[Rfam]
RNA sequence: CACCGACAUCAGCGAUUCGUUCUGCGAUUCGGCACCGACGGCGAGAUAGGCGUUCAUGCCCAGCUCUUUCAUUUGCUGUUCGCCGAUGACGCGGGUGGUGAUAUUGCUCCACGCGUCCGCCAGCUGGCUCGCCUGCGAGGCCAAGUACGCGGCAUUACAGAUGUUUGGCGGCAUAUUGCCGAGAUCUUUCGC
Numbered sequence: 001c002a003c004c005g006a007c008a009u010c011a012g013c014g015a016u017u018c019g020u021u022c023u024g025c026g027a028u029u030c031g032g033c034a035c036c037g038a039c040g041g042c043g044a045g046a047u048a049g050g051c052g053u054u055c056a057u058g059c060c061c062a063g064c065u066c067u068u069u070c071a072u073u074u075g076c077u078g079u080u081c082g083c084c085g086a087u088g089a090c091g092c093g094g095g096u097g098g099u100g101a102u103a104u105u106g107c108u109c110c111a112c113g114c115g116u117c118c119g120c121c122a123g124c125u126g127g128c129u130c131g132c133c134u135g136c137g138a139g140g141c142c143a144a145g146u147a148c149g150c151g152g153c154a155u156u157a158c159a160g161a162u163g164u165u166u167g168g169c170g171g172c173a174u175a176u177u178g179c180c181g182a183g184a185u186c187u188u189u190c191g192c
Stems, first nucleotide, its partner, number of pairs: 005186002013031002017027004033043001035041001050059002062077003078132002082128004087123001091120007100108001102106001133160003137156002140153003164183006

Overview: A member of the RNA family "Yersinia sRNA 276" from Candidatus Erwinia dacicola, 192 nucleotides long. The base pairs follow the family's consensus structure, which was predicted with RNAfold. The literature on the family includes a 2015 paper in PLoS Genet by Nuss et al., "Transcriptomic profiling of Yersinia pseudotuberculosis reveals reprogramming of the Crp regulon by temperature and uncovers Crp as a master regulator of small RNAs". It is annotated as an antisense RNA.